[Rfam]
RNA: mir-135 microRNA precursor family
RNA sequence: AUGCCGCCGUGUACUAUGGCUUUUUAUUCCUAUGUGAUGAUGAUGAAUGCUCGUGUAGGAAUAGAAGCCGUUUUACACGAGGCGA
Dot-bracket structure: .((((.(.(((((..((((((((..((((((((((((.............)))))))))))).))))))))..)))))).)))).